[Rfam]
RNA sequence: GCAGUCACGCCGUUUGUGACUGAAACCUCACAGUUGUGAGUGCAAAACACAUGAAGAAGGAAUAAUCGAUG
Numbered sequence: 001g002c003a004g005u006c007a008c009g010c011c012g013u014u015u016g017u018g019a020c021u022g023a024a025a026c027c028u029c030a031c032a033g034u035u036g037u038g039a040g041u042g043c044a045a046a047a048c049a050c051a052u053g054a055a056g057a058a059g060g061a062a063u064a065a066u067c068g069a070u071g
Stems, first nucleotide, its partner, number of pairs: 002022008026042001027040004
Shown here is a 71-nucleotide RNA from Erwinia billingiae, a member of the family "osmY RNA". It is one of the family's seed sequences. By type it is a small RNA.